A member of the RNA family "msiK RNA" from Acidipropionibacterium jensenii, 56 nucleotides long.
Nucleotides: 056
Base pairs, nucleotide, nucleotide: 010051011049012048013047014046015045027044028043029042030041031040032039
Number, partner (000 for none) and nucleotide at each position: 001000g002000g003000c004000c005000g006000c007000c008000a009000a010051c011049u012048u013047c014046c015045a016000c017000u018000a019000c020000g021000g022000a023000u024000c025000g026000u027044c028043g029042g030041g031040c032039a033000c034000g035000u036000a037000c038000c039032u040031g041030c042029c043028c044027g045015u046014g047013g048012a049011a050000a051010g052000g053000a054000a055000c056000a
Overview:
The base pairs follow the family's consensus structure, which is taken from published work.